[Rfam]
RNA: Mammalian CPEB3 ribozyme
RNA sequence: AAUGGUCAUAUUGGGCCACAGCAAAAGCGCUUAUGGCACAGCCCUGUCGGAUGCCAACGAAUCUGUGAAUUCUGCU
Numbered sequence: 001a002a003u004g005g006u007c008a009u010a011u012u013g014g015g016c017c018a019c020a021g022c023a024a025a026a027g028c029g030c031u032u033a034u035g036g037c038a039c040a041g042c043c044c045u046g047u048c049g050g051a052u053g054c055c056a057a058c059g060a061a062u063c064u065g066u067g068a069a070u071u072c073u074g075c076u
Base pairs, nucleotide, nucleotide: 013044014043015042016041020076021075022074023073025071026070027039029037048065049064050063051062052061054059